RNA sequence: CUAUUAAUGUUAGUGGAUGGUGUUCAGCACCAAGGACAUGUAUGUUACCUGUUAAUGUUAGUGGAUGGUGUUCAGCACCAAGGACAUGCAUGUUACAUG
Numbered sequence: 001c002u003a004u005u006a007a008u009g010u011u012a013g014u015g016g017a018u019g020g021u022g023u024u025c026a027g028c029a030c031c032a033a034g035g036a037c038a039u040g041u042a043u044g045u046u047a048c049c050u051g052u053u054a055a056u057g058u059u060a061g062u063g064g065a066u067g068g069u070g071u072u073c074a075g076c077a078c079c080a081a082g083g084a085c086a087u088g089c090a091u092g093u094u095a096c097a098u099g
Stems, first nucleotide, its partner, number of pairs: 004090001007087004018080007026072007036052003040048003